Shown here is a 466-nucleotide part of an RNA from Protostrongylus rufescens, a member of the family "Eukaryotic large subunit ribosomal RNA".
It is one of the family's seed sequences.

RNA sequence: GGUAGUAGCAAAUAUUUAAGUUCGAUCCUUGAAGACUGAAGUGGAGAAGGGUUCCACGUGAACAGUAGUUGAAUGUGGGUCAGUCGAUCCUAAGAUACUGGCUUAUGCCUUGUAUCAUUGAGAGGGAAAAGUUCACUUUUCUCUCGGAUAUCAAAAGGGAAUAGGGUUAAUAUUCCCUAACGUAGACACAGAGAUUGCGAUUCGUAUGAGUCGCUUGCGCGGUAACGCAUGCGAACUUGGUUACGUCGCUCAGAGAUCGAGCUAGAGUUCUCUUCUCUAGUUAAGGAACGGACUCCCUGGAAUCGGUUCAGCCGUAGAUAGGGACGUUGUUUCCGUAAAGCAUCGCGGUUUCUGUGAUGUCUCGUGUUCUCUGGACGGCCCUUGAAAAACCAAGGAAGGCUAUUAAUCUGUGCUACAUCGUACCGAUAUCCCCAUCAGGUCUCCAAGGUGAACAGCCUCUAGUCGA
Number, nucleotide and partner (000 for none) at each position: 001g000002g000003u000004a000005g000006u000007a000008g000009c000010a000011a000012a000013u000014a000015u033016u032017u031018a030019a029020g028021u000022u000023c000024g000025a000026u000027c000028c020029u019030u018031g017032a016033a015034g464035a463036c462037u461038g000039a000040a000041g000042u000043g444044g443045a442046g441047a000048a000049g424050g423051g000052u000053u000054c078055c077056a076057c075058g074059u073060g000061a000062a000063c071064a070065g000066u000067a000068g000069u000070u064071g063072a000073a059074u058075g057076u056077g055078g054079g000080u000081c000082a000083g000084u000085c420086g419087a418088u000089c158090c157091u000092a000093a000094g152095a151096u112097a111098c000099u000100g109101g108102c107103u000104u000105a000106u000107g102108c101109c100110u000111u097112g096113u000114a000115u000116c000117a000118u000119u000120g145121a144122g143123a142124g141125g140126g139127a138128a000129a000130a000131g000132u000133u000134c000135a000136c000137u000138u127139u126140u125141c124142u123143c122144u121145c120146g000147g000148a000149u000150a000151u095152c094153a000154a000155a000156a000157g090158g089159g000160a000161a000162u179163a178164g177165g176166g175167u000168u000169a000170a000171u000172a000173u000174u000175c166176c165177c164178u163179a162180a000181c000182g416183u415184a414185g413186a000187c412188a411189c410190a409191g408192a000193g000194a000195u000196u229197g228198c227199g226200a000201u000202u000203c000204g000205u000206a000207u000208g000209a000210g000211u000212c000213g000214c000215u000216u000217g000218c000219g000220c000221g000222g000223u000224a000225a000226c199227g198228c197229a196230u000231g000232c000233g000234a000235a000236c394237u393238u392239g391240g390241u389242u000243a000244c000245g379246u378247c377248g376249c000250u374251c373252a372253g371254a370255g369256a368257u000258c364259g363260a362261g281262c280263u279264a278265g277266a276267g000268u000269u000270c000271u000272c000273u000274u000275c000276u266277c265278u264279a263280g262281u261282u000283a000284a000285g334286g333287a332288a331289c000290g000291g000292a000293c000294u324295c323296c322297c321298u320299g319300g000301a000302a000303u000304c314305g313306g312307u000308u000309c000310a000311g000312c306313c305314g304315u000316a000317g000318a000319u299320a298321g297322g296323g295324a294325c000326g000327u000328u000329g000330u000331u288332u287333c286334c285335g000336u000337a000338a000339a000340g000341c359342a358343u357344c356345g355346c354347g353348g000349u000350u000351u000352c000353u347354g346355u345356g344357a343358u342359g341360u000361c000362u260363c259364g258365u000366g000367u000368u256369c255370u254371c253372u252373g251374g250375a000376c248377g247378g246379c245380c000381c000382u000383u000384g000385a000386a000387a000388a000389a241390c240391c239392a238393a237394g236395g000396a000397a000398g000399g000400c000401u000402a000403u000404u000405a000406a000407u000408c191409u190410g189411u188412g187413c185414u184415a183416c182417a000418u087419c086420g085421u000422a000423c050424c049425g000426a000427u000428a000429u000430c439431c438432c000433c000434a000435u000436c000437a000438g431439g430440u000441c046442u045443c044444c043445a000446a458447g457448g456449u455450g000451a000452a000453c000454a000455g449456c448457c447458u446459c000460u000461a037462g036463u035464c034465g000466a000